[Rfam]
RNA sequence: GAGGAAUCUAUUGGCCAUCGAGCCGGCCCUUUACCGAGGACCGGGGAGGGUGGUCGAAAAGAGGAAUCC
Number, nucleotide and partner (000 for none) at each position: 001g000002a000003g000004g000005a000006a000007u000008c000009u000010a000011u057012u056013g055014g000015c053016c052017a051018u050019c049020g000021a000022g000023c044024c043025g042026g041027c000028c039029c038030u037031u036032u000033a000034c000035c000036g031037a030038g029039g028040a000041c026042c025043g024044g023045g000046g000047a000048g000049g019050g018051u017052g016053g015054u000055c013056g012057a011058a000059a000060a000061g000062a000063g000064g000065a000066a000067u000068c000069c000
RNA: ilvH RNA
Organism: Tepidimonas alkaliphilus